[Rfam]
The record is a 116-nucleotide RNA sequence from Volvox reticuliferus, which matches "U5 spliceosomal RNA" in Rfam.
A search with the family's covariance model found it, with a score of 75 bits.
Rfam describes the family as follows. U5 RNA is a component of both types of known spliceosome. The precise function of this molecule is unknown, though it is known that the 5' loop is required for splice site selection and p220 binding, and that both the 3' stem-loop and the Sm site are important for Sm protein binding and cap methylation.
Rfam classes the family as a spliceosomal small nuclear RNA.
Nucleotides: 116
Base pairs, nucleotide, nucleotide: 003080004079005078006077009068010067011066012065013064014063016061017060018059019058028054029053030052031051032050033049034048035047098116100115101114103112105110
Number, partner (000 for none) and nucleotide at each position: 001000u002000a003080g004079c005078g006077c007000u008000g009068a010067g011066c012065c013064g014063u015000u016061c017060u018059c019058g020000g021000a022000a023000c024000u025000u026000a027000c028054a029053u030052c031051u032050c033049u034048u035047u036000c037000g038000c039000c040000u041000u042000u043000u044000a045000c046000u047035a048034a049033a050032g051031a052030g053029a054028u055000c056000a057000g058019c059018g060017a061016g062000u063014a064013c065012g066011g067010c068009u069000c070000a071000c072000c073000a074000a075000a076000g077006g078005c079004g080003c081000a082000u083000a084000u085000c086000a087000u088000c089000a090000u091000u092000a093000u094000u095000u096000g097000c098116g099000a100115g101114g102000c103112u104000u105110u106000u107000g108000c109000c110105g111000u112103a113000c114101c115100c116098c